[Rfam]
Nucleotides: 112
Base pairs, nucleotide, nucleotide: 014081015080016079017078024075025074026073029068030067031066032065035044049064050063052061053060054059091112092111093110094109095108096107097106098105099104
Number, partner (000 for none) and nucleotide at each position: 001000g002000c003000g004000a005000u006000g007000a008000g009000c010000c011000c012000g013000u014081u015080u016079g017078c018000a019000u020000a021000a022000g023000a024075c025074g026073g027000a028000u029068a030067a031066g032065c033000a034000c035044u036000c037000c038000u039000u040000u041000u042000u043000a044035a045000g046000g047000a048000a049064c050063a051000c052061g053060u054059u055000g056000u057000g058000g059054a060053g061052c062000g063050u064049g065032g066031c067030u068029u069000a070000u071000g072000a073026c074025c075024g076000c077000c078017g079016c080015a081014a082000a083000c084000u085000u086000g087000g088000a089000g090000a091112g092111c093110c094109c095108c096107u097106u098105a099104c100000u101000u102000u103000u104099g105098u106097a107096a108095g109094g110093g111092g112091c
Rfam assigns this 112-nucleotide sequence from Mangrovibacillus cuniculi to the family "BsrF". The literature on the family includes a 2008 paper in Gene by Saito et al., "Novel small RNA-encoding genes in the intergenic regions of Bacillus subtilis". It is annotated as a small RNA.